Notes: A member of the RNA family "DUF805b RNA" from Algibacter lectus, 39 nucleotides long. The match comes from Rfam's covariance-model search (42 bits). The organism belongs to Algibacter, within Bacteria. It is annotated as a cis-regulatory element.

[Rfam]
RNA sequence: AAAGCGGUAGCCGAAAAGCUUAUACAAAUAGAGUAGGUU
Dot-bracket structure: .((((....[[[.....))))..............]]].